The record is a 142-nucleotide RNA sequence from Acinetobacter sp. CIP 102637, which matches "Manganese Mn2+ riboswitch aptamer (yybP-ykoY)" in Rfam. The pairing is the family consensus, mapped onto this sequence.
RNA sequence: AACCACUUCAUUGGGGAGUAGCCGCUCUUUACGCAAAGUAGAGAGGUGAUGAUCAACAUAAUUGUUCAACAGAACAUGGUCAUCAUAGCAAAGAACCAAAAACAGCUUUUCAGCUGUGCUUUUGUUGGCAAGACCUUUGAUU
Numbered sequence: 001a002a003c004c005a006c007u008u009c010a011u012u013g014g015g016g017a018g019u020a021g022c023c024g025c026u027c028u029u030u031a032c033g034c035a036a037a038g039u040a041g042a043g044a045g046g047u048g049a050u051g052a053u054c055a056a057c058a059u060a061a062u063u064g065u066u067c068a069a070c071a072g073a074a075c076a077u078g079g080u081c082a083u084c085a086u087a088g089c090a091a092a093g094a095a096c097c098a099a100a101a102a103c104a105g106c107u108u109u110u111c112a113g114c115u116g117u118g119c120u121u122u123u124g125u126u127g128g129c130a131a132g133a134c135c136u137u138u139g140a141u142u
Stems, first nucleotide, its partner, number of pairs: 026044003046086010063076005087141001089139005

A search with the family's covariance model found it, with a score of 62 bits. The family has 29 seed sequences and 1,126 matches in Rfam 15.1.